Description:
Rfam assigns this 108-nucleotide RNA sequence from Oceanobacillus halophilus to the family "TPP riboswitch aptamer (THI element)". The source organism's lineage runs through Bacteria, Bacilli, Caryophanales, Bacillaceae and Oceanobacillus.
RNA sequence: AAAUAGCACUAGGGGAGCUACUGAAAUGUGGCUGAGAAGACUAAACUUGUCUGACCCUUAUAACCCGAUCUAGAUAAUACUAGCGUGGGGAAGUGCAGUUCGUGCUGU
Dot-bracket structure: .....(((((((((.((((((......)))))......(((.(...).))))..)))).....((((..((((......))))..))))..)))))............